[Rfam]
RNA sequence: UAUCAGGAUUGCUAGGGUUCCGGUUCCAGUUACAUGGAAUGUCUGGUCCGAGAGCGAUCCGGCCUCAAGGUGAGGUUCCACGGAGGGAUAAAAGCCCGGGAGAG
Numbered sequence: 001u002a003u004c005a006g007g008a009u010u011g012c013u014a015g016g017g018u019u020c021c022g023g024u025u026c027c028a029g030u031u032a033c034a035u036g037g038a039a040u041g042u043c044u045g046g047u048c049c050g051a052g053a054g055c056g057a058u059c060c061g062g063c064c065u066c067a068a069g070g071u072g073a074g075g076u077u078c079c080a081c082g083g084a085g086g087g088a089u090a091a092a093a094g095c096c097c098g099g100g101a102g103a104g
Base pairs, nucleotide, nucleotide: 007059008058009057010056011055012054015049016048020046021045022043023040024039025038026037027036028035061077062076063075064074065073066072079099081102085097086096087095

This 104-nucleotide RNA sequence from Sulfuriferula sp. AH1 belongs to the Rfam family "Guanidine-I riboswitch aptamer". The family has 100 seed sequences and 1,509 matches in Rfam 15.1. This family represents a conserved RNA structure found upstream of the ykkC and yxkD genes in Bacillus subtilis and related genes in other bacteria. The function of this family is unclear although it has been suggested that it may function to switch on efflux pumps and detoxification systems in response to harmful environmental molecules. It scores 88 bits against the family's covariance model. Lineage of the source: Bacteria > Pseudomonadota > Nitrosomonadales > Sulfuricellaceae > Sulfuriferula.